This 37-nucleotide RNA sequence from Nesterenkonia sedimenti belongs to the Rfam family "abiF RNA". Rfam 15.1 lists 282 matches to the family in 274 species. The family's RNA type in Rfam is small RNA. The base pairs follow the family's consensus structure, which is taken from published work. Rfam describes the family as follows. Actinobacteria, Bacteroidetes, Clostridia, Proteobacteria, one Clostridia phage.
RNA sequence: UCCCCCACGCCUCUCGGAGAAGCGCAACUUGGGGGAU
Numbered sequence: 001u002c003c004c005c006c007a008c009g010c011c012u013c014u015c016g017g018a019g020a021a022g023c024g025c026a027a028c029u030u031g032g033g034g035g036a037u
Base pairs, nucleotide, nucleotide: 001036002035003034004033005032006031008024009023010022
Dot-bracket structure: ((((((.(((...........)))......)))))).